This 78-nucleotide RNA from Alligator mississippiensis belongs to the Rfam family "Small nucleolar RNA SNORD53/SNORD92".
A reference for the family is Kiss-Laszlo et al. (1996), "Site-specific ribose methylation of preribosomal RNA: a novel function for small nucleolar RNAs", Cell.
Gene Ontology terms of the family: RNA processing and nucleolus.
The family has 37 seed sequences and 2,250 matches in Rfam 15.1.
Its Rfam clan is "SNORD52 clan".
Rfam classes the family as a C/D-box small nucleolar RNA.

RNA sequence: UUGCUGUGAUGAUACCCAUUUGGUUUCGCUUACUACUGAUUGGCAGUGAAGACGUUUUCCUCUUGGCUGUCUGAGCAG
Dot-bracket structure: ((((......................................................................))))